[Rfam]
RNA sequence: ACUGCCGCCGGACGGAACCGGUCGUGAGGGUUGGGGAGCCCGACGACCGAUCGGAUUUCGAGGCCGCUCGGGUUGAUAGGGAGCCCGGCACGGACCGCUCUGGCGAAGGAG
Numbered sequence: 001a002c003u004g005c006c007g008c009c010g011g012a013c014g015g016a017a018c019c020g021g022u023c024g025u026g027a028g029g030g031u032u033g034g035g036g037a038g039c040c041c042g043a044c045g046a047c048c049g050a051u052c053g054g055a056u057u058u059c060g061a062g063g064c065c066g067c068u069c070g071g072g073u074u075g076a077u078a079g080g081g082a083g084c085c086c087g088g089c090a091c092g093g094a095c096c097g098c099u100c101u102g103g104c105g106a107a108g109g110a111g
Base pairs, nucleotide, nucleotide: 006105007104008103009102010101011100012099013060014059015058016057018054019053020052021051022050023049024048028041029040030039031038032037062096063095064093065092066091069087070086071085072084073083
The family of this 111-nucleotide sequence is "Actinomyces-1 RNA".
By type it is a small RNA.